[Rfam]
The record is a 92-nucleotide sequence from Tatumella morbirosei, which matches "TPP riboswitch aptamer (THI element)" in Rfam. The organism belongs to Tatumella, within Bacteria.
RNA sequence: CUGUUCUCAACGGGGUGCCCACUGGUGCUGAGAUAUACCCGUAGAACCUGAUCCGGUUAACACCGGCGUAGGGAUUUGAGACUGACUCACUC
Numbered sequence: 001c002u003g004u005u006c007u008c009a010a011c012g013g014g015g016u017g018c019c020c021a022c023u024g025g026u027g028c029u030g031a032g033a034u035a036u037a038c039c040c041g042u043a044g045a046a047c048c049u050g051a052u053c054c055g056g057u058u059a060a061c062a063c064c065g066g067c068g069u070a071g072g073g074a075u076u077u078g079a080g081a082c083u084g085a086c087u088c089a090c091u092c
Stems, first nucleotide, its partner, number of pairs: 006080005011041004016035001017028002020025001047072004053066004